[Rfam]
RNA: transfer-messenger RNA
Organism: Gemella morbillorum
RNA sequence: GGGGAUGUUUAGGAUUCGACAGGGAUGCUAGUCUUCUUGGUGGCAUGUAGGAGGGUUGGCUCCUUUAAUAACACACUCAGUUAAAUAUAACUGGCGAAAAAACAAAUUACGCUUUAGCAGCUUAAUAGCUAAAGGCUGAUUACUUUGUUCGACUGUGGCAAAGCUAAUCGGUUCAUUAAUAGCAGUCUACGAUUUAUCACUUCCGUUUGUAGUGGUAAAUAAGAGAAUAAUCAAACUCGUUUUUCAUUGCCCGUUUAUCGGCUUAAGUGAAAAAUUAAAUUUAAUAGGUAAACUAAACAUGUAGAAGCUAAGGGGAGGUUUUCUUGGACGCGGGUUCAAAUCCCGCCAUCUCCAUAC
Numbered sequence: 001g002g003g004g005a006u007g008u009u010u011a012g013g014a015u016u017c018g019a020c021a022g023g024g025a026u027g028c029u030a031g032u033c034u035u036c037u038u039g040g041u042g043g044c045a046u047g048u049a050g051g052a053g054g055g056u057u058g059g060c061u062c063c064u065u066u067a068a069u070a071a072c073a074c075a076c077u078c079a080g081u082u083a084a085a086u087a088u089a090a091c092u093g094g095c096g097a098a099a100a101a102a103c104a105a106a107u108u109a110c111g112c113u114u115u116a117g118c119a120g121c122u123u124a125a126u127a128g129c130u131a132a133a134g135g136c137u138g139a140u141u142a143c144u145u146u147g148u149u150c151g152a153c154u155g156u157g158g159c160a161a162a163g164c165u166a167a168u169c170g171g172u173u174c175a176u177u178a179a180u181a182g183c184a185g186u187c188u189a190c191g192a193u194u195u196a197u198c199a200c201u202u203c204c205g206u207u208u209g210u211a212g213u214g215g216u217a218a219a220u221a222a223g224a225g226a227a228u229a230a231u232c233a234a235a236c237u238c239g240u241u242u243u244u245c246a247u248u249g250c251c252c253g254u255u256u257a258u259c260g261g262c263u264u265a266a267g268u269g270a271a272a273a274a275u276u277a278a279a280u281u282u283a284a285u286a287g288g289u290a291a292a293c294u295a296a297a298c299a300u301g302u303a304g305a306a307g308c309u310a311a312g313g314g315g316a317g318g319u320u321u322u323c324u325u326g327g328a329c330g331c332g333g334g335u336u337c338a339a340a341u342c343c344c345g346c347c348a349u350c351u352c353c354a355u356a357c
Stems, first nucleotide, its partner, number of pairs: 001353007020326006027319003032316010044301005049064005054078002057075002112134007135172006143163006151187006192220009205236005239275010249262003253293004258286001330346005